[Rfam]
RNA sequence: AACAGUGGAAGGAACGGCUAAAUUCGCCACGUCCUGUGACAACGCCGUUCUGACCCACAUCGUGUAGG
Numbered sequence: 001a002a003c004a005g006u007g008g009a010a011g012g013a014a015c016g017g018c019u020a021a022a023u024u025c026g027c028c029a030c031g032u033c034c035u036g037u038g039a040c041a042a043c044g045c046c047g048u049u050c051u052g053a054c055c056c057a058c059a060u061c062g063u064g065u066a067g068g
Stems, first nucleotide, its partner, number of pairs: 012050007026040001028038003054068002057065002
RNA: Bacillaceae-1 RNA